[Rfam]
RNA sequence: CAAGUCUUGUCGGGGCGCCGUUUACAGAGAACUCCUUUCUCUGGGCUGAGAUCGCAUGUGUGAGUCCCGUUGUACCUGAUCUGGAUAAUGCCAGCGUAGGGAACAAGGUCUUACGGGCG
Numbered sequence: 001c002a003a004g005u006c007u008u009g010u011c012g013g014g015g016c017g018c019c020g021u022u023u024a025c026a027g028a029g030a031a032c033u034c035c036u037u038u039c040u041c042u043g044g045g046c047u048g049a050g051a052u053c054g055c056a057u058g059u060g061u062g063a064g065u066c067c068c069g070u071u072g073u074a075c076c077u078g079a080u081c082u083g084g085a086u087a088a089u090g091c092c093a094g095c096g097u098a099g100g101g102a103a104c105a106a107g108g109u110c111u112u113a114c115g116g117g118c119g
Stems, first nucleotide, its partner, number of pairs: 006107005011069004017046003053062003075100004081094004
TPP riboswitch aptamer (THI element): a 119-nucleotide RNA sequence from Spongiibacter pelagi. It scores 73 bits against the family's covariance model. The source organism's lineage runs through Bacteria, Pseudomonadota, Gammaproteobacteria, Spongiibacteraceae and Spongiibacter. About the family: Vitamin B(1) in its active form thiamin pyrophosphate (TPP) is an essential coenzyme that is synthesised by coupling of pyrimidine and thiazole moieties in bacteria.